Annotation: Rfam assigns this 147-nucleotide RNA from Hibiscus syriacus to the family "small nucleolar RNA snoR134". The base pairs follow the family's consensus structure, which was predicted with RNAalifold. It is annotated as an H/ACA-box small nucleolar RNA.
RNA sequence: CAGCACGAACUCUCCCGGGCUUAUCUGAAUCUCAAAAAGUGAAGAAAAAAGCCCCAAUGUUGGUGCUAAAGUCAUGCCGUCUCACGUGUUGCCGAGUAGCUUUGCUUUCCCCACCGGCUCUUCCGUGUCAAAUAGGCGGCGACACUU
Number, nucleotide and partner (000 for none) at each position: 001c000002a000003g066004c065005a064006c063007g000008a061009a060010c059011u000012c000013u000014c000015c000016c000017g054018g053019g052020c051021u050022u048023a000024u045025c044026u043027g000028a000029a000030u000031c000032u000033c000034a000035a000036a000037a000038a000039g000040u000041g000042a000043a026044g025045a024046a000047a000048a022049a000050a021051g020052c019053c018054c017055c000056a000057a000058u000059g010060u009061u008062g000063g006064u005065g004066c003067u000068a000069a000070a000071g000072u000073c000074a000075u000076g140077c139078c138079g137080u136081c135082u134083c000084a000085c000086g000087u130088g129089u000090u127091g126092c125093c000094g123095a122096g000097u000098a000099g118100c117101u116102u000103u000104g000105c000106u000107u000108u000109c000110c000111c000112c000113a000114c000115c000116g101117g100118c099119u000120c000121u000122u095123c094124c000125g092126u091127g090128u000129c088130a087131a000132a000133u000134a082135g081136g080137c079138g078139g077140c076141g000142a000143c000144a000145c000146u000147u000